Rfam assigns this 78-nucleotide RNA from Peptostreptococcaceae bacterium oral taxon 113 to the family "S10-Clostridia ribosomal protein leader". Rfam's curators put it in the seed alignment.
Nucleotides: 078
Stems, first nucleotide, its partner, number of pairs: 014050003018047004025039001027037003057078008
Number, partner (000 for none) and nucleotide at each position: 001000a002000c003000a004000c005000c006000g007000c008000g009000a010000u011000g012000a013000a014050a015049c016048g017000g018047g019046a020045g021044g022000u023000u024000g025039c026000c027037g028036c029035c030000a031000u032000u033000u034000u035029g036028g037027c038000a039025g040000g041000a042000a043000a044021u045020u046019u047018c048016c049015g050014u051000g052000g053000a054000g055000u056000a057078u058077g059076u060075c061074c062073a063072a064071a065000c066000u067000u068000g069000g070000a071064u072063u073062u074061g075060g076059g077058c078057g
Notes: It is annotated as a cis-regulatory leader.